[Rfam]
RNA sequence: UUAUAAGGAAAUUUAACUUUUUAGAUUCGUUUAAUUAAUGAUGUAUAUGGUUUAUAUUGUGGACCACAUACAUCAUUAAUUAAAUGAACCUAAAAAGUUAAAUUUGCUUAUAA
Numbered sequence: 001u002u003a004u005a006a007g008g009a010a011a012u013u014u015a016a017c018u019u020u021u022u023a024g025a026u027u028c029g030u031u032u033a034a035u036u037a038a039u040g041a042u043g044u045a046u047a048u049g050g051u052u053u054a055u056a057u058u059g060u061g062g063a064c065c066a067c068a069u070a071c072a073u074c075a076u077u078a079a080u081u082a083a084a085u086g087a088a089c090c091u092a093a094a095a096a097g098u099u100a101a102a103u104u105u106g107c108u109u110a111u112a113a
Base pairs, nucleotide, nucleotide: 002112003111004110005109006108007107009105010104011103012102014100015099016098017097018096019095020094021093022092023091024090026088027087028086029085030084031083032082033081034080035079036078037077038076039075040074041073042072043071048066049065050064051063
RNA: MIR2593 microRNA precursor family